[Rfam]
The family of this 103-nucleotide RNA sequence is "RAGATH-23 RNA". The family's consensus secondary structure is taken from published work.
RNA sequence: GCAAGAAUCACAAUCUUAUUUAAACGGUAGUGAUAACCCCACAUGAUUUCACUAUAGGAUUUAGCUGCCCAGGAUGAGAACUCCUGUCCUGGGUAGUAUGCCU
Dot-bracket structure: ..........................(((((((...............)))))))........((((((((((((..........))))))))))))......